Rfam assigns this 73-nucleotide sequence from Scyliorhinus torazame to the family "Mammalian CPEB3 ribozyme". Taxonomically the source falls in Scyliorhinus (Eukaryota, Opisthokonta, Chordata, Craniata). The match comes from Rfam's covariance-model search (46 bits). Pairs were carried over by alignment from the consensus structure, which is taken from published work. About the family: The mammalian CPEB3 ribozyme is a self cleaving RNA located in the second intron of the CPEB3 gene which belongs to a family of genes regulating messenger RNA polyadenylation.
RNA sequence: AAAGAUGACCAUAGCCAUGGAAGGAGUGUUCACGUCAUGGCCUGUCAGGCUGAACCAGCCUGCAAAUCUUUCC
Dot-bracket structure: .............[[[..((((((((((.......)))]]]....(((((((...)))))))....)))))))